[Rfam]
RNA sequence: AUAAAAAGUAGAGGUGCGUAAUUCAAGAGUAGAAUGGCGGAUGUAACAGAUACAGAAGAAACCAUUUCAAAGGGGAUGACGCCGAAGUGAUGAAGGUGCUGGCUUUCAUUGCUGGGGGCAUGGUUAACAGCCAUGUCACUGUCAUCUUUAGGAUAGCUUUUUGACAGCAGAUUCUUAAGAUGGAGGGCUACUUAAAGG
Number, nucleotide and partner (000 for none) at each position: 001a000002u000003a000004a000005a000006a193007a192008g191009u190010a189011g188012a000013g000014g000015u000016g082017c081018g080019u079020a000021a077022u076023u075024c074025a000026a000027g000028a000029g000030u000031a000032g067033a066034a065035u064036g063037g062038c000039g000040g000041a000042u000043g000044u000045a000046a000047c000048a000049g000050a000051u000052a000053c000054a000055g000056a000057a000058g000059a000060a000061a000062c037063c036064a035065u034066u033067u032068c000069a000070a000071a000072g000073g000074g024075g023076a022077u021078g000079a019080c018081g017082c016083c000084g000085a000086a113087g112088u111089g110090a109091u108092g107093a106094a105095g104096g103097u102098g000099c000100u000101g000102g097103c096104u095105u094106u093107c092108a091109u090110u089111g088112c087113u086114g140115g139116g000117g137118g136119c135120a134121u133122g132123g131124u130125u000126a000127a000128c000129a000130g124131c123132c122133a121134u120135g119136u118137c117138a000139c115140u114141g000142u183143c182144a181145u180146c179147u178148u177149u000150a000151g000152g000153a000154u000155a000156g000157c000158u000159u000160u000161u000162u000163g000164a000165c000166a000167g000168c000169a000170g000171a000172u000173u000174c000175u000176u000177a148178a147179g146180a145181u144182g143183g142184a000185g000186g000187g000188c011189u010190a009191c008192u007193u006194a000195a000196a000197g000198g000

A member of the RNA family "Lysine riboswitch aptamer" from [Bacteroides] pectinophilus, 198 nucleotides long.